[Rfam]
RNA: Small nucleolar RNA SNORD34
Organism: Corchorus capsularis
RNA sequence: GGAGGCGUAUGAUGUUAUGUCUAAUGACAAUUGCCUACAUUGCCUGAUUGUCUUGUGAAUGACAAAAUAAAAGUUCUGAAGCUUCC
Numbered sequence: 001g002g003a004g005g006c007g008u009a010u011g012a013u014g015u016u017a018u019g020u021c022u023a024a025u026g027a028c029a030a031u032u033g034c035c036u037a038c039a040u041u042g043c044c045u046g047a048u049u050g051u052c053u054u055g056u057g058a059a060u061g062a063c064a065a066a067a068u069a070a071a072a073g074u075u076c077u078g079a080a081g082c083u084u085c086c
Base pairs, nucleotide, nucleotide: 001086002085004083005082006081